Shown here is a 333-nucleotide part of an RNA from Croceivirga radicis, a member of the family "Bacterial large subunit ribosomal RNA". The organism belongs to Croceivirga, within Bacteria. On this family, see Yusupov et al., Science 2001: "Crystal structure of the ribosome at 5.5 A resolution".
RNA sequence: CGAGAGAUUCAUGGCUAAGGAACUAGGCAAAAUAGACGCGUAACUUCGGGAGAAGCGUCGCCUGCUUCGGCAGGCCGCAGUGAAAAGGUCCAGGCGACUGUUUAUCAAAAACACAGGGCUAUGCCAAUUCGAAAGAAGACGUAUAUGGCCUGACACCUGCCCGGUGCCGGAAGGUUAAAGGGAGAUGUUAGCUUAGGUGAAGCAUUGAACUGAAGCCCCGGUAAACGGCGGCCGUAACUAUAACGGUCCUAAGGUAGCGAAAUUCCUUGUCGGGUAAGUUCCGACCUGCACGAAUGGUGCAACGAUCUGGACACUGUCUCAGCCAUGAUCUCG
Number, nucleotide and partner (000 for none) at each position: 001c333002g332003a331004g330005a000006g000007a000008u000009u328010c327011a326012u325013g324014g323015c322016u321017a000018a319019g318020g317021a000022a000023c000024u000025a000026g000027g000028c000029a000030a000031a000032a000033u000034a000035g059036a058037c057038g056039c055040g000041u000042a000043a000044c049045u000046u000047c000048g000049g044050g000051a000052g000053a000054a000055g039056c038057g037058u036059c035060g075061c074062c073063u072064g071065c070066u000067u000068c000069g000070g065071c064072a063073g062074g061075c060076c080077g000078c000079a000080g076081u000082g000083a000084a000085a000086a000087g000088g312089u311090c310091c309092a308093g307094g306095c304096g303097a000098c000099u113100g112101u111102u000103u000104a000105u000106c000107a000108a000109a000110a000111a101112c100113a099114c000115a000116g151117g150118g149119c148120u147121a146122u145123g144124c141125c000126a000127a000128u137129u136130c135131g000132a000133a000134a000135g130136a129137a128138g000139a000140c000141g124142u000143a000144u123145a122146u121147g120148g119149c118150c117151u116152g000153a000154c299155a298156c297157c296158u000159g229160c228161c227162c000163g000164g226165u225166g222167c221168c220169g219170g218171a000172a000173g217174g216175u215176u000177a000178a000179a211180g210181g000182g000183a000184g206185a205186u204187g203188u202189u000190a000191g198192c197193u000194u000195a000196g000197g192198u191199g000200a000201a000202g188203c187204a186205u185206u184207g000208a000209a000210c180211u179212g000213a000214a000215g175216c174217c173218c170219c169220g168221g167222u166223a000224a000225a165226c164227g161228g160229c159230g248231g247232c246233c245234g244235u243236a000237a000238c000239u000240a000241u000242a000243a235244c234245g233246g232247u231248c230249c253250u000251a000252a000253g249254g000255u000256a000257g000258c000259g286260a000261a000262a000263u000264u000265c000266c000267u000268u000269g285270u284271c283272g282273g281274g280275u000276a000277a000278g000279u000280u274281c273282c272283g271284a270285c269286c259287u000288g000289c000290a000291c000292g000293a000294a000295u000296g157297g156298u155299g154300c000301a000302a000303c096304g095305a000306u094307c093308u092309g091310g090311a089312c088313a000314c000315u000316g000317u020318c019319u018320c000321a016322g015323c014324c013325a012326u011327g010328a009329u000330c004331u003332c002333g001